Rfam assigns this 63-nucleotide RNA sequence from Otolemur garnettii to the family "U7 small nuclear RNA". About the family: Animal histone pre-mRNAs are spliced by a different mechanism than nuclear pre-mRNAs and self-splicing introns. The organism belongs to Otolemur, within Eukaryota. The family's consensus secondary structure was predicted with PFOLD. On this family, see Spycher et al., Nucleic Acids Res 1994: "3' end processing of mouse histone pre-mRNA: evidence for additional base-pairing between U7 snRNA and pre-mRNA".

RNA sequence: CAAUCCUUAUAGUGCUUUUAGAAUUUGUCUAGCAGGUUUUCCAGUGUCUACUGGAAGACUAAU
Numbered sequence: 001c002a003a004u005c006c007u008u009a010u011a012g013u014g015c016u017u018u019u020a021g022a023a024u025u026u027g028u029c030u031a032g033c034a035g036g037u038u039u040u041c042c043a044g045u046g047u048c049u050a051c052u053g054g055a056a057g058a059c060u061a062a063u
Base pairs, nucleotide, nucleotide: 035060036059037058038057039056040055041054042053043052044051045050